[Rfam]
RNA sequence: GCCUCCGUAGCUCAGUGGUAGAGCACCGCUCUUGUAAAGCGAAGGUCGUCGGUUCAAUCCCGACCGGGGGCU
Numbered sequence: 001g002c003c004u005c006c007g008u009a010g011c012u013c014a015g016u017g018g019u020a021g022a023g024c025a026c027c028g029c030u031c032u033u034g035u036a037a038a039g040c041g042a043a044g045g046u047c048g049u050c051g052g053u054u055c056a057a058u059c060c061c062g063a064c065c066g067g068g069g070g071c072u
Base pairs, nucleotide, nucleotide: 001071002070003069004068005067006066007065010024011023012022013021027041028040029039030038048064049063050062051061052060
RNA: tRNA